RNA sequence: UGAUACCAGGGUCAAAAAGUCUUUCACACACAUGAGCUUGCUCAUCAGUGGGUGAAAGACCUUGCGACCCGCCCCGAUAUGAGCAUACGAUAUGCGAAUAUCCUGAUGCUGAUUGCGGGAAUGUGUAACAUGAAGCAAUCAGUAGGUAUCA
Numbered sequence: 001u002g003a004u005a006c007c008a009g010g011g012u013c014a015a016a017a018a019g020u021c022u023u024u025c026a027c028a029c030a031c032a033u034g035a036g037c038u039u040g041c042u043c044a045u046c047a048g049u050g051g052g053u054g055a056a057a058g059a060c061c062u063u064g065c066g067a068c069c070c071g072c073c074c075c076g077a078u079a080u081g082a083g084c085a086u087a088c089g090a091u092a093u094g095c096g097a098a099u100a101u102c103c104u105g106a107u108g109c110u111g112a113u114u115g116c117g118g119g120a121a122u123g124u125g126u127a128a129c130a131u132g133a134a135g136c137a138a139u140c141a142g143u144a145g146g147u148a149u150c151a
Stems, first nucleotide, its partner, number of pairs: 001151007010069004016063002019060009029050003032045005073105001076102005083095004110141007121131004
Rfam assigns this 151-nucleotide sequence from Eubacterium sp. CAG:38 to the family "Clostridiales-1 RNA". Taxonomically the source falls in Eubacterium (Bacteria, Clostridia, Eubacteriales, Eubacteriaceae). It scores 106 bits against the family's covariance model. The family has 194 seed sequences and 1,172 matches in Rfam 15.1. The base pairs follow the family's consensus structure, which is taken from published work. By type it is a small RNA.